Shown here is a 138-nucleotide RNA from Sakesphorus luctuosus, a member of the family "Small nucleolar RNA SNORA64/SNORA10 family". The family's consensus secondary structure is taken from published work. Rfam links the family to the GO terms nucleolus and RNA processing. Clan: SNORA64 clan. From the family's description: This family belongs to the H/ACA class of small nucleolar RNAs (snoRNAs) which act as guides in the the modification of uridines to pseudouridines. It scores 36 bits against the family's covariance model.

[Rfam]
RNA sequence: AGACUCUCCCAUCUGCGCAAUUGCACCCUGUGCUGUGGUGUUAAUUGUCGUACAUGUGGAGAGAAAGAAACACGAGUUUUGUGUGUUCGUCAGAGAGACCUGCCCGUGGUCUCCCUGUCCUUCCAAAAUCCGACAUUU
Numbered sequence: 001a002g003a004c005u006c007u008c009c010c011a012u013c014u015g016c017g018c019a020a021u022u023g024c025a026c027c028c029u030g031u032g033c034u035g036u037g038g039u040g041u042u043a044a045u046u047g048u049c050g051u052a053c054a055u056g057u058g059g060a061g062a063g064a065a066a067g068a069a070a071c072a073c074g075a076g077u078u079u080u081g082u083g084u085g086u087u088c089g090u091c092a093g094a095g096a097g098a099c100c101u102g103c104c105c106g107u108g109g110u111c112u113c114c115c116u117g118u119c120c121u122u123c124c125a126a127a128a129u130c131c132g133a134c135a136u137u138u
Stems, first nucleotide, its partner, number of pairs: 004067002007064002012060004019046004023041004077128005083122001085120001092116002096112005